[Rfam]
RNA sequence: CGGUGACCGCCGCCUAAUCGCCUCUCGCAGGCGAGCCGGGGAACCACCGCACCUGGGGUGAAUCCGCUACUCGCGGUAGGGAUCGUUCCGUCCCGAACCCGUCAGCUAACUCGGCAGGCGGCCGAUGGAAGGAACA
Numbered sequence: 001c002g003g004u005g006a007c008c009g010c011c012g013c014c015u016a017a018u019c020g021c022c023u024c025u026c027g028c029a030g031g032c033g034a035g036c037c038g039g040g041g042a043a044c045c046a047c048c049g050c051a052c053c054u055g056g057g058g059u060g061a062a063u064c065c066g067c068u069a070c071u072c073g074c075g076g077u078a079g080g081g082a083u084c085g086u087u088c089c090g091u092c093c094c095g096a097a098c099c100c101g102u103c104a105g106c107u108a109a110c111u112c113g114g115c116a117g118g119c120g121g122c123c124g125a126u127g128g129a130a131g132g133a134a135c136a
Stems, first nucleotide, its partner, number of pairs: 011120004018034005035115006045055002056100003064076004079094004
RNA: c-di-AMP riboswitch aptamer (ydaO/yuaA leader)